[Rfam]
RNA sequence: AGGAGGAGCAGCCACAGUGGCGUGGGCAGCUCUGGAAACCUGGAUUCAGCCCCCGCAGUAACUCUGGGGCUCUCAGUCUGCAGGGCCUGGGGGCUCCGGGGCGGG
Dot-bracket structure: .((((...(((((.....(((..((..(((((((((...(((.............)))....)))))))))))..))).....)).)))....))))........